[Rfam]
RNA sequence: AAUUUUGAGCAGUCGCGGUUAGCUUUUGCUAGCUGAGGAAAGUCCACGCACGCACAAGCUGCGAUGCUUGUAGUGAUCGUAUUCAGCUCAACAAGCUGGAGAAUAUUUUUUUAAUAUGACGGCGGAAAAAGUGCUAAGUCUUCGUGAUAUGCAUGACUAUCCUGAAAAGUGCCACAGUGACGUAGCAAAAUUGGAAACAAUUUUGGUGGAACGAGGUAAACCCUGCGAGUGUGCAACCCAAAUUUGGUGGGGGCGUCUCGACCUAAGAAAAUGAACUAAAGGUCGGAUUAUUGCUCUAAGCAAUAAAGAUAGAUGGCUGCUAAAGAUAAUUUUUGCCGAAGAUUAUUGGAACAGAACGUGGCUUAUAGAA
Dot-bracket structure: ...(((((((((((.((((((........))))))....[[[.[[[[[(((((((((((......)))))).....(((((((((((.......))))))(.(((((.....)))))..)((.(((....((((...(((.....)))..)))).....)))......(((((............((((((((....)))))))).........)))..))))))))))))))...(((..........)))...((.(((((.................)))))))((((((((...))))))))........)))))))...(((((((((.....))))))))).........]]]]]]]].).)))